RNA sequence: CUCGCGUGGCGGGUGGGGAGGCUCUGGGGUUACUAACCCUAAUGGCUGCCGCCGCUCCCCGCGCCCGUCCGCUGUUUUACUCGCUGACUUUCAGCGGACGAGGGGAGUAGCCCGGGGGGUGCGGGGAGGGGGUGUCCUUGGAAGGGGGUUGGCCAAAAAAAACGUCAGCGAGGGGUCUCCUCACCCGGCCCGCCCUGGGGCCCCUGUGUCCUAUCCCACCUCCCCCCCAAGACCCCUCUGCGGUCAGGGGACGGCAGCGGAGGUUCCCGGCGCCGCACUUCCCUGAGGCCGCGGUCGGCCGGUUCCCGCCACUGCCGCCGCGAAGAGCUCGCCUCUGUCAGCCUCGGCGGCGGCCGGAGGGGCGCGUGUCCCCCAGCGCCAAGGGAUCCCAGCAGAGCAAAACCGGAGCGGCGCCCCCCGGGCCUAAACGCCGCGCUCCCCUCAGCUGUGGGGCACGCGCGGCCGGCGCCGCUCCGACACGC
Numbered sequence: 001c002u003c004g005c006g007u008g009g010c011g012g013g014u015g016g017g018g019a020g021g022c023u024c025u026g027g028g029g030u031u032a033c034u035a036a037c038c039c040u041a042a043u044g045g046c047u048g049c050c051g052c053c054g055c056u057c058c059c060c061g062c063g064c065c066c067g068u069c070c071g072c073u074g075u076u077u078u079a080c081u082c083g084c085u086g087a088c089u090u091u092c093a094g095c096g097g098a099c100g101a102g103g104g105g106a107g108u109a110g111c112c113c114g115g116g117g118g119g120u121g122c123g124g125g126g127a128g129g130g131g132g133u134g135u136c137c138u139u140g141g142a143a144g145g146g147g148g149u150u151g152g153c154c155a156a157a158a159a160a161a162a163c164g165u166c167a168g169c170g171a172g173g174g175g176u177c178u179c180c181u182c183a184c185c186c187g188g189c190c191c192g193c194c195c196u197g198g199g200g201c202c203c204c205u206g207u208g209u210c211c212u213a214u215c216c217c218a219c220c221u222c223c224c225c226c227c228c229a230a231g232a233c234c235c236c237u238c239u240g241c242g243g244u245c246a247g248g249g250g251a252c253g254g255c256a257g258c259g260g261a262g263g264u265u266c267c268c269g270g271c272g273c274c275g276c277a278c279u280u281c282c283c284u285g286a287g288g289c290c291g292c293g294g295u296c297g298g299c300c301g302g303u304u305c306c307c308g309c310c311a312c313u314g315c316c317g318c319c320g321c322g323a324a325g326a327g328c329u330c331g332c333c334u335c336u337g338u339c340a341g342c343c344u345c346g347g348c349g350g351c352g353g354c355c356g357g358a359g360g361g362g363c364g365c366g367u368g369u370c371c372c373c374c375a376g377c378g379c380c381a382a383g384g385g386a387u388c389c390c391a392g393c394a395g396a397g398c399a400a401a402a403c404c405g406g407a408g409c410g411g412c413g414c415c416c417c418c419c420g421g422g423c424c425u426a427a428a429c430g431c432c433g434c435g436c437u438c439c440c441c442u443c444a445g446c447u448g449u450g451g452g453g454c455a456c457g458c459g460c461g462g463c464c465g466g467c468g469c470c471g472c473u474c475c476g477a478c479a480c481g482c
Stems, first nucleotide, its partner, number of pairs: 005192002008189001010187009020177005056106005066100009083169006089162003195392006248372006255366001265359001267357005272351005290322005296317004301310003324336004406474010431462005438453004
RNA: Vertebrate telomerase RNA